[Rfam]
G-CSF factor stem-loop destabilising element (SLDE): a 97-nucleotide sequence. Rfam classes the family as a cis-regulatory element. Its family is annotated with nuclear-transcribed mRNA poly(A) tail shortening in the Gene Ontology. It is one of the family's seed sequences.
RNA sequence: CUGAGGAUGCCCACCUCGGGGCCCUUGGAAGCAUCGGGAAGUCUCCCAAGUGGGAGAUGAGACAGCUCUGUUUAAUAUUUAAACAGCAGUGUUCCCC
Number, nucleotide and partner (000 for none) at each position: 001c000002u000003g026004a025005g024006g023007a000008u021009g000010c020011c019012c018013a000014c000015c000016u000017c000018g012019g011020g010021g008022c000023c006024c005025u004026u003027g000028g000029a000030a000031g000032c000033a000034u062035c061036g000037g000038g000039a000040a000041g058042u057043c056044u055045c054046c053047c052048a000049a000050g000051u000052g047053g046054g045055a044056g043057a042058u041059g000060a000061g035062a034063c000064a000065g000066c000067u000068c086069u085070g084071u083072u082073u081074a080075a079076u000077a000078u000079u075080u074081a073082a072083a071084c070085a069086g068087c000088a000089g000090u000091g000092u000093u000094c000095c000096c000097c000
The base pairs follow the family's consensus structure, which is taken from published work.